The record is a 126-nucleotide sequence from Mastacembelus armatus, which matches "Small nucleolar RNA SNORA8" in Rfam.
Its Rfam clan is "SNORA8 clan".
Pairs were carried over by alignment from the consensus structure, which was predicted with RNAfold.
Rfam 15.1 lists 1,490 matches to the family in 610 species.
The match comes from Rfam's covariance-model search (60 bits).

[Rfam]
RNA sequence: AGCACUGUAUGGUAUCUGCAGCCAGUUGGUUCAUUAGCUGGUUUGUUCAAAAGUCAGUGCUAGACUAACUCAAUAUCUGGCAUCGUUGGUCUCCAUGCUGCCUGUGUUUGGGGUCCUGGUAUGGUU
Numbered sequence: 001a002g003c004a005c006u007g008u009a010u011g012g013u014a015u016c017u018g019c020a021g022c023c024a025g026u027u028g029g030u031u032c033a034u035u036a037g038c039u040g041g042u043u044u045g046u047u048c049a050a051a052a053g054u055c056a057g058u059g060c061u062a063g064a065c066u067a068a069c070u071c072a073a074u075a076u077c078u079g080g081c082a083u084c085g086u087u088g089g090u091c092u093c094c095a096u097g098c099u100g101c102c103u104g105u106g107u108u109u110g111g112g113g114u115c116c117u118g119g120u121a122u123g124g125u126u
Stems, first nucleotide, its partner, number of pairs: 002060006014054002017051001018046004023041001024039005063115002069113001070111004079099005